RNA sequence: ACACACGGAAAGGAGGUGGUCCGAAGAAUGAUUGCUUAUCGGACAUGUGAGGUGACGGCUAGCUAGCCGCUGCUAACGAUUCAGCUGGUCUGGAUCACUGGCCGAGCGGCCGGCGAAUCCACAGCCGCACACCCGAACCCGCGAGCGCCGGAGUUGUCCCCCGGCCGACGGACCCACCACCUCCCCGCGAGGACCGUUCUCC
Numbered sequence: 001a002c003a004c005a006c007g008g009a010a011a012g013g014a015g016g017u018g019g020u021c022c023g024a025a026g027a028a029u030g031a032u033u034g035c036u037u038a039u040c041g042g043a044c045a046u047g048u049g050a051g052g053u054g055a056c057g058g059c060u061a062g063c064u065a066g067c068c069g070c071u072g073c074u075a076a077c078g079a080u081u082c083a084g085c086u087g088g089u090c091u092g093g094a095u096c097a098c099u100g101g102c103c104g105a106g107c108g109g110c111c112g113g114c115g116a117a118u119c120c121a122c123a124g125c126c127g128c129a130c131a132c133c134c135g136a137a138c139c140c141g142c143g144a145g146c147g148c149c150g151g152a153g154u155u156g157u158c159c160c161c162c163g164g165c166c167g168a169c170g171g172a173c174c175c176a177c178c179a180c181c182u183c184c185c186c187g188c189g190a191g192g193a194c195c196g197u198u199c200u201c202c
Base pairs, nucleotide, nucleotide: 015060016059017058019056020055062114063113064112066110067109069107070106071105074101076099134196135195138192139191140189141188142187143186145184147165148164149163150162151161

Rfam assigns this 202-nucleotide RNA from Microlunatus soli to the family "Actinobacteria sRNA Ms_IGR-5". Rfam classes the family as a small RNA.